A member of the RNA family "eL15-Euryarchaeota ribosomal protein leader", 53 nucleotides long. Pairs were carried over by alignment from the consensus structure, which is taken from published work. On this family, see Eckert and Weinberg, BMC Microbiol 2020: "Discovery of 20 novel ribosomal leader candidates in bacteria and archaea".

RNA sequence: GCGGGAUUCGUCCCGUUAAAAGGAAUGUAGCCUGUCACAGGCUGAACCUUGAG
Numbered sequence: 001g002c003g004g005g006a007u008u009c010g011u012c013c014c015g016u017u018a019a020a021a022g023g024a025a026u027g028u029a030g031c032c033u034g035u036c037a038c039a040g041g042c043u044g045a046a047c048c049u050u051g052a053g
Base pairs, nucleotide, nucleotide: 001016002015003014004013005012021049022048023047029043030042031041032040033039